[Rfam]
RNA sequence: AUAAUGAUACUCCUGCAUAACCACAGACUAAAGCAAUGGGUGCAGUUGUGUGAGAACCACACGAAGGUGAAAUUCCUGUGA
Numbered sequence: 001a002u003a004a005u006g007a008u009a010c011u012c013c014u015g016c017a018u019a020a021c022c023a024c025a026g027a028c029u030a031a032a033g034c035a036a037u038g039g040g041u042g043c044a045g046u047u048g049u050g051u052g053a054g055a056a057c058c059a060c061a062c063g064a065a066g067g068u069g070a071a072a073u074u075c076c077u078g079u080g081a
Base pairs, nucleotide, nucleotide: 012078013045014044015043016042017041018040046064047063048062050060051059052058065077066076067075
This 81-nucleotide RNA sequence belongs to the Rfam family "pemK RNA".
Rfam classes the family as a cis-regulatory element.
It is one of the family's seed sequences.